RNA sequence: AGCUUUGCACAGUGGCAGUAUCGUAGCCAAUGAGGUUUAUCCGAGGCACGAUUAUUGCUGAUUGAGAGAUAAAAAGAAUAGUAACGCUUAUCUCAGAAGGUCUUGAAUCAACUGAGAAAGUGCCUGGCACAUAGGCAGCUGG
Numbered sequence: 001a002g003c004u005u006u007g008c009a010c011a012g013u014g015g016c017a018g019u020a021u022c023g024u025a026g027c028c029a030a031u032g033a034g035g036u037u038u039a040u041c042c043g044a045g046g047c048a049c050g051a052u053u054a055u056u057g058c059u060g061a062u063u064g065a066g067a068g069a070u071a072a073a074a075a076g077a078a079u080a081g082u083a084a085c086g087c088u089u090a091u092c093u094c095a096g097a098a099g100g101u102c103u104u105g106a107a108u109c110a111a112c113u114g115a116g117a118a119a120g121u122g123c124c125u126g127g128c129a130c131a132u133a134g135g136c137a138g139c140u141g142g
Stems, first nucleotide, its partner, number of pairs: 020052005026047003034042002086123002089119001091117006132141003
U4 spliceosomal RNA: a 142-nucleotide RNA from Saimiri boliviensis.
Rfam 15.1 lists 32,178 matches to the family in 2,547 species.
Pairs were carried over by alignment from the consensus structure, which is taken from published work.
By type it is a spliceosomal small nuclear RNA.
U4 small nuclear RNA (U4 snRNA) is a component of the major U2-dependent spliceosome.